[Rfam]
Shown here is a 79-nucleotide RNA from Vicugna pacos, a member of the family "Small nucleolar RNA SNORD115". The family has 32 seed sequences and 3,387 matches in Rfam 15.1.

RNA sequence: GGGUCGAUGAUGAAAACUCAUGGUCCUGAAGAGAGGUGAUGACCUAAAAAUUAUGCUCAGUAGGAUUACGCUGAGGCCC
Numbered sequence: 001g002g003g004u005c006g007a008u009g010a011u012g013a014a015a016a017c018u019c020a021u022g023g024u025c026c027u028g029a030a031g032a033g034a035g036g037u038g039a040u041g042a043c044c045u046a047a048a049a050a051u052u053a054u055g056c057u058c059a060g061u062a063g064g065a066u067u068a069c070g071c072u073g074a075g076g077c078c079c
Stems, first nucleotide, its partner, number of pairs: 001079004005073002008070002
NCBI's taxonomy places the organism under Eukaryota, Eumetazoa, Teleostomi, Tetrapoda, Vicugna. A reference for the family is Cavaille et al. (2000), "Identification of brain-specific and imprinted small nucleolar RNA genes exhibiting an unusual genomic organization", Proc Natl Acad Sci U S A.